The family of this 52-nucleotide RNA sequence from Piliocolobus tephrosceles is "mir-1302 microRNA precursor family". The base pairs follow the family's consensus structure, which was predicted with WAR. Its family is annotated with RISC complex and miRNA-mediated post-transcriptional gene silencing in the Gene Ontology. Rfam 15.1 lists 16,160 matches to the family in 135 species.
[Rfam]
RNA sequence: CGUUUAGUGUAAGUAUGUUCCAUGCCACAUUUGGGAUAUACUUACACUAUAA
Numbered sequence: 001c002g003u004u005u006a007g008u009g010u011a012a013g014u015a016u017g018u019u020c021c022a023u024g025c026c027a028c029a030u031u032u033g034g035g036a037u038a039u040a041c042u043u044a045c046a047c048u049a050u051a052a
Stems, first nucleotide, its partner, number of pairs: 006048007014040003018036004022031001